[Rfam]
TPP riboswitch aptamer (THI element): a 96-nucleotide RNA sequence from Bacillus methanolicus.
The organism belongs to Bacillus, within Bacteria.
The base pairs follow the family's consensus structure, which is taken from published work.
Its family is annotated with thiamine pyrophosphate binding in the Gene Ontology.
RNA sequence: AAAAAACUAUUAGGGUGCCCGUAGUAUGGGUUUAGAAAAAACCUUUUGGACUUGAUAUGGAUCAUACCAGCUUAGGAAAGUAGUGUAAUUUUUUCC
Numbered sequence: 001a002a003a004a005a006a007c008u009a010u011u012a013g014g015g016u017g018c019c020c021g022u023a024g025u026a027u028g029g030g031u032u033u034a035g036a037a038a039a040a041a042c043c044u045u046u047u048g049g050a051c052u053u054g055a056u057a058u059g060g061a062u063c064a065u066a067c068c069a070g071c072u073u074a075g076g077a078a079a080g081u082a083g084u085g086u087a088a089u090u091u092u093u094u095c096c
Stems, first nucleotide, its partner, number of pairs: 006084005012044003016039001017031005051076004058069003